A member of the RNA family "Guanidine-I riboswitch aptamer" from Paenibacillus selenitireducens, 110 nucleotides long. The pairing is the family consensus, mapped onto this sequence.

RNA sequence: UGUGAAGUUCCCUAGGGUUCCGUAAUCGCAUGCCGUGAUUAGUCUGGUCCGAGGGGGAACGAAUGGUUCUAUGAACCAUUGAGACACGGAGGGACAAAAGCCCGGGAGAU
Number, nucleotide and partner (000 for none) at each position: 001u000002g000003u000004g000005a000006a000007g060008u059009u058010c057011c056012c055013u000014a000015g050016g049017g000018u000019u000020c047021c046022g044023u041024a040025a039026u038027c037028g036029c000030a000031u000032g000033c000034c000035g000036u028037g027038a026039u025040u024041a023042g000043u000044c022045u000046g021047g020048u000049c016050c015051g000052a000053g000054g000055g012056g011057g010058a009059a008060c007061g000062a080063a079064u078065g077066g076067u075068u074069c000070u000071a000072u000073g000074a068075a067076c066077c065078a064079u063080u062081g000082a000083g000084a000085c105086a000087c108088g000089g000090a000091g103092g102093g101094a000095c000096a000097a000098a000099a000100g000101c093102c092103c091104g000105g085106g000107a000108g087109a000110u000
Rfam's curators write: This family represents a conserved RNA structure found upstream of the ykkC and yxkD genes in Bacillus subtilis and related genes in other bacteria.